[Rfam]
RNA: 6S / SsrS RNA
RNA sequence: GCGGGACUGCCCGGCACGAGCCGUAGAACAUCCCUGAGGCUAUAAGUUUAUCCUAGGGAGCUGUCCCUGUCCUGGUCCACCAGUUCGGCUGUGGGGCCGGGGUAUACGGCGCCCACCUGACCUUUUGCGUCAGAGGAUUUCCCAGGCACCGACCCAUGGUGGUUCCGCC
Numbered sequence: 001g002c003g004g005g006a007c008u009g010c011c012c013g014g015c016a017c018g019a020g021c022c023g024u025a026g027a028a029c030a031u032c033c034c035u036g037a038g039g040c041u042a043u044a045a046g047u048u049u050a051u052c053c054u055a056g057g058g059a060g061c062u063g064u065c066c067c068u069g070u071c072c073u074g075g076u077c078c079a080c081c082a083g084u085u086c087g088g089c090u091g092u093g094g095g096g097c098c099g100g101g102g103u104a105u106a107c108g109g110c111g112c113c114c115a116c117c118u119g120a121c122c123u124u125u126u127g128c129g130u131c132a133g134a135g136g137a138u139u140u141c142c143c144a145g146g147c148a149c150c151g152a153c154c155c156a157u158g159g160u161g162g163u164u165c166c167g168c169c
Stems, first nucleotide, its partner, number of pairs: 002167010013154002017151002031137003034133004039128002056114003060110005069103007076095005